The record is a 130-nucleotide sequence from Moschus moschiferus, which matches "Small nucleolar RNA U109" in Rfam. It scores 72 bits against the family's covariance model. Rfam 15.1 lists 1,405 matches to the family in 622 species. The family's consensus secondary structure was predicted with WAR. NCBI's taxonomy places the organism under Eukaryota, Eumetazoa, Deuterostomia, Dipnotetrapodomorpha, Moschus.
Nucleotides: 130
Stems, first nucleotide, its partner, number of pairs: 003060004008055001016042003020038004070121002080110001085104004090099001
Number, partner (000 for none) and nucleotide at each position: 001000u002000u003060g004059u005058a006057u007000a008055u009000g010000a011000a012000a013000a014000u015000g016042u017041c018040u019000c020038u021037u022036c023035c024000u025000c026000a027000u028000u029000c030000c031000u032000u033000u034000a035023g036022g037021a038020g039000c040018a041017g042016a043000a044000g045000u046000a047000u048000a049000u050000c051000c052000a053000c054000a055008g056000c057006a058005u059004g060003c061000u062000a063000u064000g065000u066000u067000g068000a069000a070121a071120g072000u073000u074000c075000u076000c077000a078000g079000g080110a081000c082000u083000g084000g085104c086103a087102g088101u089000c090099u091000a092000a093000u094000a095000g096000u097000a098000g099090a100000a101088a102087u103086u104085g105000a106000g107000u108000a109000c110080u111000a112000g113000u114000g115000u116000a117000u118000g119000u120071u121070u122000c123000c124000u125000a126000c127000a128000u129000a130000a